The record is a 118-nucleotide RNA sequence from Phyllostomus discolor, which matches "Small nucleolar RNA SNORA25" in Rfam. ACA25 is a member of the H/ACA class of snoRNA that guide the sites of modification of uridines to pseudouridines. The source organism's lineage runs through Eukaryota, Bilateria, Theria, Eutheria and Phyllostomus. The base pairs follow the family's consensus structure, which was predicted with RNAfold. It is annotated as an H/ACA-box small nucleolar RNA.
[Rfam]
RNA sequence: AGGGUAUUUCAAAGAGAGCUUAUGUGAUCAAAACCAGGAGCUCUUAACACUAUGACCUAAGAUUAAAGUUCUCCAUAGGAUGUAAUAGACACUCAAUGUUUCCUGAGGAGAUUUAAGA
Numbered sequence: 001a002g003g004g005u006a007u008u009u010c011a012a013a014g015a016g017a018g019c020u021u022a023u024g025u026g027a028u029c030a031a032a033a034c035c036a037g038g039a040g041c042u043c044u045u046a047a048c049a050c051u052a053u054g055a056c057c058u059a060a061g062a063u064u065a066a067a068g069u070u071c072u073c074c075a076u077a078g079g080a081u082g083u084a085a086u087a088g089a090c091a092c093u094c095a096a097u098g099u100u101u102c103c104u105g106a107g108g109a110g111a112u113u114u115a116a117g118a
Stems, first nucleotide, its partner, number of pairs: 002057002005054003014045008023037001026035001070111005077104004085097002088094001